Record summary: A member of the RNA family "Acido-Lenti-1 RNA" from Flavipsychrobacter stenotrophus, 45 nucleotides long. A search with the family's covariance model found it, with a score of 38 bits. Lineage of the source: Bacteria > Chitinophagia > Chitinophagales > Chitinophagaceae > Flavipsychrobacter.
RNA sequence: CCCGGGACUACACCCCGGGCUAUUAUAUUUCGGUCUUUCAGACCU
Numbered sequence: 001c002c003c004g005g006g007a008c009u010a011c012a013c014c015c016c017g018g019g020c021u022a023u024u025a026u027a028u029u030u031c032g033g034u035c036u037u038u039c040a041g042a043c044c045u
Stems, first nucleotide, its partner, number of pairs: 001019006032044005